[Rfam]
RNA: Small nucleolar RNA Z105
Organism: Actinidia chinensis
RNA sequence: UAGUGAUGAUGAUGAUUGAAAAUAUUCUGAUUUUUCAAGAGAUGAUAAAAAACCUCCUACUCAUUCUGA
Numbered sequence: 001u002a003g004u005g006a007u008g009a010u011g012a013u014g015a016u017u018g019a020a021a022a023u024a025u026u027c028u029g030a031u032u033u034u035u036c037a038a039g040a041g042a043u044g045a046u047a048a049a050a051a052a053c054c055u056c057c058u059a060c061u062c063a064u065u066c067u068g069a
Stems, first nucleotide, its partner, number of pairs: 006064004026045002028039001